[Rfam]
A member of the RNA family "c-di-AMP riboswitch aptamer (ydaO/yuaA leader)" from Bacillus sp. T33-2, 140 nucleotides long. Rfam links the family to the GO terms cyclic-di-AMP binding and regulation of gene expression. Taxonomically the source falls in Bacillus (Bacteria, Bacillati, Bacillota, Caryophanales).

RNA sequence: AAUAAAUAUCGGCCAAAUCUCAAAGGUUUGAGAACGGAGGAACCACUAAUAGGGGUUAAUUCUGCAUUUGCAGGAAGGAUGAGAUACUCUUUCGCCAUCCUACCCGUCAGCUAACUUCGUCGGCUAAAGCGAAGGAGGUC
Numbered sequence: 001a002a003u004a005a006a007u008a009u010c011g012g013c014c015a016a017a018u019c020u021c022a023a024a025g026g027u028u029u030g031a032g033a034a035c036g037g038a039g040g041a042a043c044c045a046c047u048a049a050u051a052g053g054g055g056u057u058a059a060u061u062c063u064g065c066a067u068u069u070g071c072a073g074g075a076a077g078g079a080u081g082a083g084a085u086a087c088u089c090u091u092u093c094g095c096c097a098u099c100c101u102a103c104c105c106g107u108c109a110g111c112u113a114a115c116u117u118c119g120u121c122g123g124c125u126a127a128a129g130c131g132a133a134g135g136a137g138g139u140c
Stems, first nucleotide, its partner, number of pairs: 011125004018033005034120006044052001053105003061074004077100004